A member of the RNA family "sRNA-Xcc1" from Moraxella nonliquefaciens, 88 nucleotides long. The literature on the family includes a 2011 paper in RNA Biol by Chen et al., "sRNA-Xcc1, an integron-encoded transposon- and plasmid-transferred trans-acting sRNA, is under the positive control of the key virulence regulators HrpG and HrpX of Xanthomonas campestris pathovar campestris". The base pairs follow the family's consensus structure, which was predicted with RNAalifold. The organism belongs to Moraxella, within Bacteria. Rfam classes the family as a small RNA.
RNA sequence: GACGGGUUGAGAGAGCCUAAUACAACACCCAGUAAUGGGAAAUAAGCUCCGCUGUCUUUGAGCAGUAGUUGAAACCUGUCGCUCUAUG
Numbered sequence: 001g002a003c004g005g006g007u008u009g010a011g012a013g014a015g016c017c018u019a020a021u022a023c024a025a026c027a028c029c030c031a032g033u034a035a036u037g038g039g040a041a042a043u044a045a046g047c048u049c050c051g052c053u054g055u056c057u058u059u060g061a062g063c064a065g066u067a068g069u070u071g072a073a074a075c076c077u078g079u080c081g082c083u084c085u086a087u088g
Stems, first nucleotide, its partner, number of pairs: 001080008013049004018044002028039003051066005
Dot-bracket structure: ((((((((....((((.((........(((......)))...)).)))).(((((......)))))......))))))))........